[Rfam]
RNA sequence: CCUCCUUUACUUGGAAGGAUCAGGUUUUGUAGUACCUGGUUCUGUAAUGUCCGGUGGUGAAGAAAUUAUUUUCCAGUGUUCUGUCUUCAGUGCCAGCGGCUUUACCAUCCACUGGUUCUGUCCUCAAGCACUGGAAAAAAU
Numbered sequence: 001c002c003u004c005c006u007u008u009a010c011u012u013g014g015a016a017g018g019a020u021c022a023g024g025u026u027u028u029g030u031a032g033u034a035c036c037u038g039g040u041u042c043u044g045u046a047a048u049g050u051c052c053g054g055u056g057g058u059g060a061a062g063a064a065a066u067u068a069u070u071u072u073c074c075a076g077u078g079u080u081c082u083g084u085c086u087u088c089a090g091u092g093c094c095a096g097c098g099g100c101u102u103u104a105c106c107a108u109c110c111a112c113u114g115g116u117u118c119u120g121u122c123c124u125c126a127a128g129c130a131c132u133g134g135a136a137a138a139a140a141u
Stems, first nucleotide, its partner, number of pairs: 001057002004054002016043005022037004074133006093115004098110002
This 141-nucleotide RNA from Salvator merianae belongs to the Rfam family "Small nucleolar RNA SNORA57". Rfam's curators write: U99 belongs to the H/ACA class of snoRNAs which are thought to guide the sites of modification of uridines to pseudouridines, the target for this family is unknown. The family's RNA type in Rfam is H/ACA-box small nucleolar RNA. NCBI's taxonomy places the organism under Eukaryota, Opisthokonta, Euteleostomi, Sauria, Salvator. Rfam links the family to the GO terms RNA processing and nucleolus. The literature on the family includes a 2003 paper in Nucleic Acids Res by Vitali et al., "Identification of 13 novel human modification guide RNAs". Pairs were carried over by alignment from the consensus structure, which was predicted with PFOLD. The match comes from Rfam's covariance-model search (98 bits).